[Rfam]
RNA sequence: AGUUGAUGCACACGGUGGCUUUUCCUCCCAGUUCCACCGCAUCAGCUGUUCCCCUCUGGAGGUUUUUGACCUUCACACUUAAAGGGCCCUGGAUUUAUCCGGCGGCCCUCUUUU
Numbered sequence: 001a002g003u004u005g006a007u008g009c010a011c012a013c014g015g016u017g018g019c020u021u022u023u024c025c026u027c028c029c030a031g032u033u034c035c036a037c038c039g040c041a042u043c044a045g046c047u048g049u050u051c052c053c054c055u056c057u058g059g060a061g062g063u064u065u066u067u068g069a070c071c072u073u074c075a076c077a078c079u080u081a082a083a084g085g086g087c088c089c090u091g092g093a094u095u096u097a098u099c100c101g102g103c104g105g106c107c108c109u110c111u112u113u114u
Stems, first nucleotide, its partner, number of pairs: 001047005007041003015037004057075007083109006089102004

Record summary
The family of this 114-nucleotide RNA from Agrobacterium tumefaciens is "Alphaproteobacterial ar15". The source organism's lineage runs through Bacteria, Alphaproteobacteria, Hyphomicrobiales, Rhizobiaceae and Agrobacterium tumefaciens complex. For this family Rfam cites "A survey of sRNA families in alpha-proteobacteria" (del Val et al., RNA Biol, 2012).